Description
Shown here is a 354-nucleotide part of an RNA from Acidithiobacillus caldus, a member of the family "Bacterial small subunit ribosomal RNA". NCBI's taxonomy places the organism under Bacteria, Pseudomonadati, Pseudomonadota, Acidithiobacillia, Acidithiobacillus caldus. The base pairs follow the family's consensus structure, which is taken from published work.

RNA sequence: GGCGUAAAGGGCGCGUAGGCGGUGGGUUACGUCUGCCGUGAAAUCCCCGGGCUCAACCUGGGAAUGGCGGUGGAAACGGGCUGACUGGAGUAUGGGAGAGGGUGAUGGAAUUCCAGGUGUAGCGGUGAAAUGCGUAGAGAUCUGGAGGAACACCAGUGGCGAAGGCGGUCACCUGGCCCAAUACUGACGCUGAGGCGCGAAAGCGUGGGGAGCAAACAGGAUUAGAUACCCUGGUAGUCCACGCCCUAAACGAUGGAUACUGGAUGUUUGGCGCCUUAGGUGCUGAGUGUCGUAGCUAACGCGAUAAGUAUCCCGCCUGGGAAGUACGGCCGCAAGGUUAAAACUCAAAGGAAU
Numbered sequence: 001g002g003c004g005u006a007a008a009g010g011g012c013g014c015g016u017a018g019g020c021g022g023u024g025g026g027u028u029a030c031g032u033c034u035g036c037c038g039u040g041a042a043a044u045c046c047c048c049g050g051g052c053u054c055a056a057c058c059u060g061g062g063a064a065u066g067g068c069g070g071u072g073g074a075a076a077c078g079g080g081c082u083g084a085c086u087g088g089a090g091u092a093u094g095g096g097a098g099a100g101g102g103u104g105a106u107g108g109a110a111u112u113c114c115a116g117g118u119g120u121a122g123c124g125g126u127g128a129a130a131u132g133c134g135u136a137g138a139g140a141u142c143u144g145g146a147g148g149a150a151c152a153c154c155a156g157u158g159g160c161g162a163a164g165g166c167g168g169u170c171a172c173c174u175g176g177c178c179c180a181a182u183a184c185u186g187a188c189g190c191u192g193a194g195g196c197g198c199g200a201a202a203g204c205g206u207g208g209g210g211a212g213c214a215a216a217c218a219g220g221a222u223u224a225g226a227u228a229c230c231c232u233g234g235u236a237g238u239c240c241a242c243g244c245c246c247u248a249a250a251c252g253a254u255g256g257a258u259a260c261u262g263g264a265u266g267u268u269u270g271g272c273g274c275c276u277u278a279g280g281u282g283c284u285g286a287g288u289g290u291c292g293u294a295g296c297u298a299a300c301g302c303g304a305u306a307a308g309u310a311u312c313c314c315g316c317c318u319g320g321g322a323a324g325u326a327c328g329g330c331c332g333c334a335a336g337g338u339u340a341a342a343a344c345u346c347a348a349a350g351g352a353a354u
Base pairs, nucleotide, nucleotide: 001317002316003315009314011198012197013196014195016192018191019190020189022085023084025082026081027080028079030078031077032074033073034072035071036070037069038068039067046062047061048060049059050058051057089185090184091183093180094179095178096177100174101173102172103171104170105169106168107151111147112146113145114144115143116142117141118140122133123132124131159166160165203244204243205242206241207240208239212238213237217233218232219231220230255313256312257311258310259309260308263291264290265289266288267287268286269285270284271283272282273281274280295302296301319346320345321344328339329338330337331336